[Rfam]
RNA: MAT2A 3'UTR stem loop D
Organism: Neogale vison
RNA sequence: UGGCGGUAUGGCAUAAGUACACAGAAGCCAUCACCUCAGA
Numbered sequence: 001u002g003g004c005g006g007u008a009u010g011g012c013a014u015a016a017g018u019a020c021a022c023a024g025a026a027g028c029c030a031u032c033a034c035c036u037c038a039g040a
Stems, first nucleotide, its partner, number of pairs: 001039001003037001005035003008031005